[Rfam]
RNA sequence: UGCAUUGUAGUUGCAUUGCAUGUUGUGACAGUAACUGUGCAAUGUUUCUGCAGUGCAGUACAG
Numbered sequence: 001u002g003c004a005u006u007g008u009a010g011u012u013g014c015a016u017u018g019c020a021u022g023u024u025g026u027g028a029c030a031g032u033a034a035c036u037g038u039g040c041a042a043u044g045u046u047u048c049u050g051c052a053g054u055g056c057a058g059u060a061c062a063g
Stems, first nucleotide, its partner, number of pairs: 001057010013045001015043007
RNA: mir-33 microRNA precursor family